The family of this 59-nucleotide sequence from Morus mongolica is "Plastid-psbA-4 3UTR RNA".

Nucleotides: 059
Base pairs, nucleotide, nucleotide: 005058006057007056008055009054010053011052012051013050014049015048016047020043021042023040024039025038027036028035
Number, partner (000 for none) and nucleotide at each position: 001000a002000a003000a004000a005058a006057a007056a008055g009054g010053a011052g012051c013050a014049a015048u016047a017000c018000c019000a020043a021042a022000c023040u024039u025038c026000u027036u028035g029000u030000u031000c032000u033000a034000u035028c036027a037000c038025g039024a040023a041000g042021u043020u044000u045000g046000g047016u048015a049014u050013u051012g052011c053010u054009c055008c056007u057006u058005u059000u
Clan: Plastid-psbA 3UTR RNA clan. For this family Rfam cites "Retrograde signaling in plants: A critical review focusing on the GUN pathway and beyond" (Richter et al., Plant Commun, 2023). NCBI's taxonomy places the organism under Eukaryota, Viridiplantae, Gunneridae, Moreae, Morus. It is one of the family's seed sequences. By type it is a cis-regulatory element.